[Rfam]
RNA sequence: UAGAAAGGUAGAGGCGCGGACUUUAUCAGUAGCAAAUCGGACAUGACAGGAUGGAUGAUGAUUUGUGAAAGGAACGUCUGCCGAAGGAGAGGAUUGCCUGCACAUGAUUCUUCUGGGCAUAUGGUAAAUAAUCAUAUGACUGUCAUCGCUAUGAUGGAGUGCUACUCGUUAU
Dot-bracket structure: ......(((((....((((((.((.......((((((((...................))))))))......)).))))))...(((((((...((......))...)))))))((.((((((((.....)))))))).)).(((((.....)))))....)))))......
A member of the RNA family "Lysine riboswitch aptamer" from Clostridium sp. CAG:62, 172 nucleotides long. Rfam's curators write: Riboswitches are metabolite binding domains within certain messenger RNAs that serve as precision sensors for their corresponding targets. Allosteric rearrangement of mRNA structure is mediated by ligand binding, and this results in modulation of gene expression. This family includes riboswitches that sense lysine in a number of genes involved in lysine metabolism, including lysC.